The family of this 70-nucleotide RNA sequence from Hypoxylon sp. CO27-5 is "bZIP non canonical Hac1/Xbp1 intron". Rfam's curators write: bZIP intron RNA is a non-canonical intron that was first reported in HAC1 gene in yeast and XBP1 gene in Metazoa. NCBI's taxonomy places the organism under Eukaryota, Opisthokonta, sordariomyceta, Xylariomycetidae, Hypoxylon. Rfam classes the family as a small RNA. For this family Rfam cites "Conserved RNA structures in the non-canonical Hac1/Xbp1 intron" (Hooks and Griffiths-Jones, RNA Biol, 2011).

RNA sequence: UACUUCCUCUGACGAGACACAACAUCCAGCAGCGGUGUUGUGCGACCUGCAGUGUCCGUCAGUGGAGGUU
Numbered sequence: 001u002a003c004u005u006c007c008u009c010u011g012a013c014g015a016g017a018c019a020c021a022a023c024a025u026c027c028a029g030c031a032g033c034g035g036u037g038u039u040g041u042g043c044g045a046c047c048u049g050c051a052g053u054g055u056c057c058g059u060c061a062g063u064g065g066a067g068g069u070u
Stems, first nucleotide, its partner, number of pairs: 002069006010061005021039006044056003